A member of the RNA family "permuted transfer-messenger RNA" from Candidatus Endolissoclinum faulkneri, 224 nucleotides long. It scores 129 bits against the family's covariance model. Lineage of the source: Bacteria > Alphaproteobacteria > Rhodospirillales > Candidatus Endolissoclinum > Candidatus Endolissoclinum faulkneri. The family's RNA type in Rfam is non-coding RNA gene.
Nucleotides: 224
Stems, first nucleotide, its partner, number of pairs: 001147005014137001016135002026125003030122003036052005053107007148163004
Number, partner (000 for none) and nucleotide at each position: 001147g002146g003145c004144g005143a006000u007000a008000a009000a010000u011000g012000g013000u014137g015000c016135u017134c018000g019000g020000a021000a022000u023000a024000a025000g026125c027124g028123c029000a030122g031121c032120g033000g034000a035000a036052c037051c038050g039049g040048g041000g042000g043000c044000g045000g046000u047000a048040c049039c050038c051037g052036g053107c054106g055105c056104c057103u058102c059101c060000a061000c062000c063000a064000u065000g066000a067000g068000u069000u070000g071000u072000a073000u074000c075000u076000a077000u078000a079000u080000u081000a082000u083000g084000g085000a086000u087000a088000g089000c090000a091000g092000g093000u094000u095000u096000u097000u098000a099000a100000u101059g102058g103057g104056g105055g106054c107053g108000a109000a110000a111000u112000a113000g114000a115000g116000u117000c118000g119000a120032c121031g122030u123028g124027c125026g126000u127000a128000a129000u130000a131000a132000a133000g134017g135016g136000u137014c138000a139000c140000u141000u142000u143005u144004u145003g146002c147001u148163c149162g150161g151160u152000a153000u154000u155000g156000u157000u158000c159000c160151a161150c162149c163148g164000u165000u166000a167000u168000c169000g170000g171000g172000c173000u174000u175000u176000c177000a178000u179000a180000c181000u182000a183000g184000u185000u186000g187000c188000g189000a190000a191000c192000g193000a194000c195000a196000a197000c198000u199000a200000u201000u202000u203000u204000g205000a206000g207000g208000c209000u210000c211000g212000c213000c214000u215000g216000g217000c218000u219000g220000c221000g222000u223000g224000a